[Rfam]
RNA sequence: UAGUUUUCAGAAACAGUGCUUUCUAGAACUG
Dot-bracket structure: (((((((.((((((...).))))))))))))

The family of this 31-nucleotide RNA from Corythaixoides concolor is "Iron response element II". From the family's description: IRE, TFRC, SLC40A1, SDHB, SLC11A2, CDC42BPA, ACO2, ALAS2_H.SAPIENS, CDC14A, EPAS1, ALAS2, qoxD, Hao1, NDUFS1, transferrin, Aconitate. A reference for the family is Koeller et al. (1989), "A cytosolic protein binds to structural elements within the iron regulatory region of the transferrin receptor mRNA", Proc Natl Acad Sci U S A.